[Rfam]
RNA sequence: GGCGUAAAGGGCUUGUAGGCGGCUUGUCGCGUCUGCCGUGAAAUCCUCUGGCUUAACUGGGGGCGUGCGGUGGGUACGGGCUGGCUUGAGUGCGGUAGGGGAGACUGGAAUUCCUGGUGUAGCGGUGGAAUGCGCAGAUAUCAGGAGGAACACCGGUGGCGAAGGCGGGUCUCUGGGCCGUUACUGACGCUGAGGAGCGAAAGCGUGGGGAGCGAACAGGAUUAGAUACCCUGGUAGUCCAUGCUGUAAACGUUGGGCACUAGGUGUGGGGGCCACCCGUGGUUUCUGCGCCGUAGCUAACGCUUUAAGUGCCCCGCCUGGGGAGUACGGCCGCAAGGCUAAAACUCAAAGGAAU
Numbered sequence: 001g002g003c004g005u006a007a008a009g010g011g012c013u014u015g016u017a018g019g020c021g022g023c024u025u026g027u028c029g030c031g032u033c034u035g036c037c038g039u040g041a042a043a044u045c046c047u048c049u050g051g052c053u054u055a056a057c058u059g060g061g062g063g064c065g066u067g068c069g070g071u072g073g074g075u076a077c078g079g080g081c082u083g084g085c086u087u088g089a090g091u092g093c094g095g096u097a098g099g100g101g102a103g104a105c106u107g108g109a110a111u112u113c114c115u116g117g118u119g120u121a122g123c124g125g126u127g128g129a130a131u132g133c134g135c136a137g138a139u140a141u142c143a144g145g146a147g148g149a150a151c152a153c154c155g156g157u158g159g160c161g162a163a164g165g166c167g168g169g170u171c172u173c174u175g176g177g178c179c180g181u182u183a184c185u186g187a188c189g190c191u192g193a194g195g196a197g198c199g200a201a202a203g204c205g206u207g208g209g210g211a212g213c214g215a216a217c218a219g220g221a222u223u224a225g226a227u228a229c230c231c232u233g234g235u236a237g238u239c240c241a242u243g244c245u246g247u248a249a250a251c252g253u254u255g256g257g258c259a260c261u262a263g264g265u266g267u268g269g270g271g272g273c274c275a276c277c278c279g280u281g282g283u284u285u286c287u288g289c290g291c292c293g294u295a296g297c298u299a300a301c302g303c304u305u306u307a308a309g310u311g312c313c314c315c316g317c318c319u320g321g322g323g324a325g326u327a328c329g330g331c332c333g334c335a336a337g338g339c340u341a342a343a344a345c346u347c348a349a350a351g352g353a354a355u
Stems, first nucleotide, its partner, number of pairs: 001318003009315001011198004016192001018191003022085003026081003030078002032074009045063007089185003092181005100174007107151001111147008122133003159166002203244006212238002217233004255314006263292012296303002320347003329340004